[Rfam]
RNA sequence: AAUCGUCGUGAUCUUGGCAGACCCAGGUAGUGUUUAUGGGUUUGUUGUAAAGGCCGACGUAAAAAAUAUGUGAAAUUACUGAACCAGGAAUAGAAGGUUGUCUUCCUGAUCUCGUUAAUUUUCAAAC
Dot-bracket structure: ...(((((.(....(((((((((((...(...)...)))))))))))......))))))..........(..((((((.((.(.((((...(((......))).)))).)..)).))))))).....
About this RNA:
Shown here is a 127-nucleotide sequence from Caenorhabditis auriculariae, a member of the family "Nematode snoRNA ceN105". Rfam links the family to the GO terms nucleolus and RNA processing. The organism belongs to Caenorhabditis, within Eukaryota. Rfam 15.1 lists 12 matches to the family in 12 species. The match comes from Rfam's covariance-model search (58 bits). Rfam classes the family as an H/ACA-box small nucleolar RNA.